[Rfam]
This 100-nucleotide sequence from Oceanirhabdus seepicola belongs to the Rfam family "Purine riboswitch aptamer". Its family is annotated with purine nucleobase biosynthetic process in the Gene Ontology.
RNA sequence: GUUUUAAUUUAAUAAUUUGCUCAUAUAAUUCCCAAAUAUGGAGGGAAGUUUCUACUAGAUAACCUUAAAUUGUCUAACUAUGAGUGGAAUCCUACUUAUG
Numbered sequence: 001g002u003u004u005u006a007a008u009u010u011a012a013u014a015a016u017u018u019g020c021u022c023a024u025a026u027a028a029u030u031c032c033c034a035a036a037u038a039u040g041g042a043g044g045g046a047a048g049u050u051u052c053u054a055c056u057a058g059a060u061a062a063c064c065u066u067a068a069a070u071u072g073u074c075u076a077a078c079u080a081u082g083a084g085u086g087g088a089a090u091c092c093u094a095c096u097u098a099u100g
Stems, first nucleotide, its partner, number of pairs: 018086008029047005056076007